[Rfam]
Pseudomonas sRNA CrcZ: a 415-nucleotide RNA from Pseudomonas mangiferae. The match comes from Rfam's covariance-model search (300 bits). Gene Ontology term of the family: carbon catabolite repression of transcription. A reference for the family is Sonnleitner et al. (2009), "Small RNA as global regulator of carbon catabolite repression in Pseudomonas aeruginosa", Proc Natl Acad Sci U S A. The source organism's lineage runs through Bacteria, Pseudomonadati, Pseudomonadales, Pseudomonadaceae and Pseudomonas.

RNA sequence: ACAACAACAAUAAAAAACGCUGAACCCCACAAUAAAAACAAGACGUAUCGGCUCCAGCAAAAUAACAACAACAAGGCGGAGACGCAGCUAACUGAUUCUUUUGGAGACCAACUGGCCCUUCGCAGGGAAGUUGCCCCGGGGUUCGCCCCAGACCAGGCCGAGAACAAUAAAACUGCCCCAAGGCAGCGCCCGAACUGGUUGGAUCGCACGAUCAAGGCAAUGUCAGUGACCAAAGCAAUCCGUUUGCUAUUGCCCCUCUCAUCUGAGGGUCUCGGAAACCGACGGUUAUCCGGGCGGACCAGACAACAAGAACAACAGGUCCGAAACAAUAACAACAAUAAAGCACGCAUCAUCUUUGGGGGGAGCUUCGGCUCCCCCCAGUGCUUUGGGCGCCCUGUCUCCUGCGUUCACCAUC
Numbered sequence: 001a002c003a004a005c006a007a008c009a010a011u012a013a014a015a016a017a018c019g020c021u022g023a024a025c026c027c028c029a030c031a032a033u034a035a036a037a038a039c040a041a042g043a044c045g046u047a048u049c050g051g052c053u054c055c056a057g058c059a060a061a062a063u064a065a066c067a068a069c070a071a072c073a074a075g076g077c078g079g080a081g082a083c084g085c086a087g088c089u090a091a092c093u094g095a096u097u098c099u100u101u102u103g104g105a106g107a108c109c110a111a112c113u114g115g116c117c118c119u120u121c122g123c124a125g126g127g128a129a130g131u132u133g134c135c136c137c138g139g140g141g142u143u144c145g146c147c148c149c150a151g152a153c154c155a156g157g158c159c160g161a162g163a164a165c166a167a168u169a170a171a172a173c174u175g176c177c178c179c180a181a182g183g184c185a186g187c188g189c190c191c192g193a194a195c196u197g198g199u200u201g202g203a204u205c206g207c208a209c210g211a212u213c214a215a216g217g218c219a220a221u222g223u224c225a226g227u228g229a230c231c232a233a234a235g236c237a238a239u240c241c242g243u244u245u246g247c248u249a250u251u252g253c254c255c256c257u258c259u260c261a262u263c264u265g266a267g268g269g270u271c272u273c274g275g276a277a278a279c280c281g282a283c284g285g286u287u288a289u290c291c292g293g294g295c296g297g298a299c300c301a302g303a304c305a306a307c308a309a310g311a312a313c314a315a316c317a318g319g320u321c322c323g324a325a326a327c328a329a330u331a332a333c334a335a336c337a338a339u340a341a342a343g344c345a346c347g348c349a350u351c352a353u354c355u356u357u358g359g360g361g362g363g364a365g366c367u368u369c370g371g372c373u374c375c376c377c378c379c380a381g382u383g384c385u386u387u388g389g390g391c392g393c394c395c396u397g398u399c400u401c402c403u404g405c406g407u408u409c410a411c412c413a414u415c
Base pairs, nucleotide, nucleotide: 049084050083052081053080054079055078099235100234101233102232103231113228114227118226151200152199153198154197155196156195173186174185175184176183177182253269254268255267257265290397292395293394294393295392296322297321298320299319341386342385343384344383359378360377361376362375363374364373365372366371